[Rfam]
Rfam assigns this 395-nucleotide sequence from Tenuifilum thalassicum to the family "Bacterial RNase P class A".
RNA sequence: GCAGAUAACCGUCCUACCGCGCCGUGAGAUACCGGUGAGGAAAGUCCGGGCAGCGCAGGGCACCACACUUCCUAACUGGAAGAUGCUCGCGAGGGCAUAGAAGUGCAACAGAAAACAACCGCCAUGCCCUGUGCAUGGUAAGGGUGAAAAGGUGAGGUAAGAGCUCACCGGGUACCAUAGCGAUAUGGUAUGCCGUGCACCUUGUGGGCUGCAAGACCAUGUAUACUUCGAUUUCGUUUGAAGCAGGGCUGCCCGUCCUGUUCCUGCUAGCCAGGAGUCGAAGGGGGUAGGUCGCAUGAGCCUGCAGGCGACUGCAGGUCGAGAUAAAUGGUAGGAGCAUUUUUGGGAAUUUCCCAGUAAAUGUACAGAACCCGGCUUAUAGGUUAUCUGCUUGC
Numbered sequence: 001g002c003a004g005a006u007a008a009c010c011g012u013c014c015u016a017c018c019g020c021g022c023c024g025u026g027a028g029a030u031a032c033c034g035g036u037g038a039g040g041a042a043a044g045u046c047c048g049g050g051c052a053g054c055g056c057a058g059g060g061c062a063c064c065a066c067a068c069u070u071c072c073u074a075a076c077u078g079g080a081a082g083a084u085g086c087u088c089g090c091g092a093g094g095g096c097a098u099a100g101a102a103g104u105g106c107a108a109c110a111g112a113a114a115a116c117a118a119c120c121g122c123c124a125u126g127c128c129c130u131g132u133g134c135a136u137g138g139u140a141a142g143g144g145u146g147a148a149a150a151g152g153u154g155a156g157g158u159a160a161g162a163g164c165u166c167a168c169c170g171g172g173u174a175c176c177a178u179a180g181c182g183a184u185a186u187g188g189u190a191u192g193c194c195g196u197g198c199a200c201c202u203u204g205u206g207g208g209c210u211g212c213a214a215g216a217c218c219a220u221g222u223a224u225a226c227u228u229c230g231a232u233u234u235c236g237u238u239u240g241a242a243g244c245a246g247g248g249c250u251g252c253c254c255g256u257c258c259u260g261u262u263c264c265u266g267c268u269a270g271c272c273a274g275g276a277g278u279c280g281a282a283g284g285g286g287g288u289a290g291g292u293c294g295c296a297u298g299a300g301c302c303u304g305c306a307g308g309c310g311a312c313u314g315c316a317g318g319u320c321g322a323g324a325u326a327a328a329u330g331g332u333a334g335g336a337g338c339a340u341u342u343u344u345g346g347g348a349a350u351u352u353c354c355c356a357g358u359a360a361a362u363g364u365a366c367a368g369a370a371c372c373c374g375g376c377u378u379a380u381a382g383g384u385u386a387u388c389u390g391c392u393u394g395c
Stems, first nucleotide, its partner, number of pairs: 001391010011380001012336007020037005042378003046375005051211004058271001063207005068082005083098001085096004099202002103200005119143002121139007151169006171193001172191008215293004226283005262276005300319008
Source information
The family's consensus secondary structure is taken from published work.